Rfam assigns this 98-nucleotide sequence from Limosilactobacillus mucosae to the family "Purine riboswitch aptamer".
Rfam describes the family as follows. Riboswitches are metabolite binding domains within certain messenger RNAs that serve as precision sensors for their corresponding targets. Allosteric rearrangement of mRNA structure is mediated by ligand binding, and this results in modulation of gene expression.
Pairs were carried over by alignment from the consensus structure, which is taken from published work.
NCBI's taxonomy places the organism under Bacteria, Bacilli, Lactobacillales, Lactobacillaceae, Limosilactobacillus mucosae.
RNA sequence: CUGUUAAAUUAAAGUUAAGCCUAUAUAUUCUCGCAAUACGGGCGAGAGUCUCUACCCUGAACCGUAAAUUCAGGACUAUAAGCAGCCAAAAAGUCGUC
Numbered sequence: 001c002u003g004u005u006a007a008a009u010u011a012a013a014g015u016u017a018a019g020c021c022u023a024u025a026u027a028u029u030c031u032c033g034c035a036a037u038a039c040g041g042g043c044g045a046g047a048g049u050c051u052c053u054a055c056c057c058u059g060a061a062c063c064g065u066a067a068a069u070u071c072a073g074g075a076c077u078a079u080a081a082g083c084a085g086c087c088a089a090a091a092a093g094u095c096g097u098c
Base pairs, nucleotide, nucleotide: 019083020082022080023079024078025077029047030046031045032044033043034042056074057073058072059071060070061069